This 176-nucleotide sequence from Clostridium isatidis belongs to the Rfam family "Lysine riboswitch aptamer". Taxonomically the source falls in Clostridium (Bacteria, Bacillota, Clostridia, Clostridiaceae). Riboswitches are metabolite binding domains within certain messenger RNAs that serve as precision sensors for their corresponding targets. Allosteric rearrangement of mRNA structure is mediated by ligand binding, and this results in modulation of gene expression. This family includes riboswitches that sense lysine in a number of genes involved in lysine metabolism, including lysC. The match comes from Rfam's covariance-model search (126 bits).
RNA sequence: ACAAGGUAUAGAGGCGCGGUAAUUAAGAGUACUAUUAAUGAGGUAAGCACUGUGAUUUAAUAGGAAAGGAAUUAUCGCCGAAGCGUAUGAUUGAUGCUUUAAGAUCAUACUGCUGGUGUUAUAUAGAAUAUAUAUAACACUGCCACAAGCUAUCUUUGUGGAGAGCUAUUACUUGA
Numbered sequence: 001a002c003a004a005g006g007u008a009u010a011g012a013g014g015c016g017c018g019g020u021a022a023u024u025a026a027g028a029g030u031a032c033u034a035u036u037a038a039u040g041a042g043g044u045a046a047g048c049a050c051u052g053u054g055a056u057u058u059a060a061u062a063g064g065a066a067a068g069g070a071a072u073u074a075u076c077g078c079c080g081a082a083g084c085g086u087a088u089g090a091u092u093g094a095u096g097c098u099u100u101a102a103g104a105u106c107a108u109a110c111u112g113c114u115g116g117u118g119u120u121a122u123a124u125a126g127a128a129u130a131u132a133u134a135u136a137a138c139a140c141u142g143c144c145a146c147a148a149g150c151u152a153u154c155u156u157u158g159u160g161g162a163g164a165g166c167u168a169u170u171a172c173u174u175g176a
Base pairs, nucleotide, nucleotide: 008169009168010167011166016078017077018076019075020074021073022072023071024070032063033062034061035060036059037058038057082114083113084112085111086109087108088107089106090105091104092103115141116140117139118138119137120136121135122134123133124132125131143161144160145159146158147157148156149155